About this RNA: The family of this 86-nucleotide RNA from Triticum turgidum is "Small nucleolar RNA snoR8a". A search with the family's covariance model found it, with a score of 57 bits. The source organism's lineage runs through Eukaryota, Streptophyta, Triticodae, Triticeae and Triticum turgidum. The family has 7 seed sequences and 956 matches in Rfam 15.1. On this family, see Brown et al., RNA 2001: "Multiple snoRNA gene clusters from Arabidopsis".
[Rfam]
RNA sequence: UGUGAUGCAGUGCUUAUAAAACAUUCCUCAUACUGACAGGAGAACCCUGUGAAUGACACCUAUACACCCAUAGAAUCUGAGCACCA
Dot-bracket structure: ..((.((..........................................................................)).))